[Rfam]
RNA sequence: UUUAAAAUAUAACUAUGUCCCAUGCAAUAUUUGGGAGAUAUUUAUACUAAAA
Numbered sequence: 001u002u003u004a005a006a007a008u009a010u011a012a013c014u015a016u017g018u019c020c021c022a023u024g025c026a027a028u029a030u031u032u033g034g035g036a037g038a039u040a041u042u043u044a045u046a047c048u049a050a051a052a
Base pairs, nucleotide, nucleotide: 006048008046009045010044011043012042014040015039016038018036019035020034021033022031
Description:
mir-1302 microRNA precursor family: a 52-nucleotide RNA sequence from Equus caballus. The organism belongs to Equus, within Eukaryota. Pairs were carried over by alignment from the consensus structure, which was predicted with WAR. A search with the family's covariance model found it, with a score of 69 bits.